Annotation:
Shown here is a 114-nucleotide RNA sequence from SAR202 cluster bacterium AD-802-F09_MRT_200m, a member of the family "TPP riboswitch aptamer (THI element)". Taxonomically the source falls in SAR202 cluster (Bacteria, Bacillati, Chloroflexota, Dehalococcoidia). From the family's description: Vitamin B(1) in its active form thiamin pyrophosphate (TPP) is an essential coenzyme that is synthesised by coupling of pyrimidine and thiazole moieties in bacteria. The previously detected thiamin-regulatory element, thi box was extended, resulting in a new, highly conserved RNA secondary structure, the THI element, which is widely distributed in eubacteria and also occurs in some archaea. Analysis of operon structures identified a large number of new candidate thiamin-regulated genes, mostly transporters, in various prokaryotic organisms. The family's consensus secondary structure is taken from published work. A search with the family's covariance model found it, with a score of 60 bits.

[Rfam]
RNA sequence: CAACGUUCUGGCGGGAGCUUGGGUAAGCCAGGCUGAGAGGGUGGCCAAAUCGCCACCGACCGUCUGUACCUGAUACGGGUAAUACCGGCGCAGGGAUUAGACGCAGCAACAGAC
Numbered sequence: 001c002a003a004c005g006u007u008c009u010g011g012c013g014g015g016a017g018c019u020u021g022g023g024u025a026a027g028c029c030a031g032g033c034u035g036a037g038a039g040g041g042u043g044g045c046c047a048a049a050u051c052g053c054c055a056c057c058g059a060c061c062g063u064c065u066g067u068a069c070c071u072g073a074u075a076c077g078g079g080u081a082a083u084a085c086c087g088g089c090g091c092a093g094g095g096a097u098u099a100g101a102c103g104c105a106g107c108a109a110c111a112g113a114c
Stems, first nucleotide, its partner, number of pairs: 007101004011063004017033005040057005069094004076087003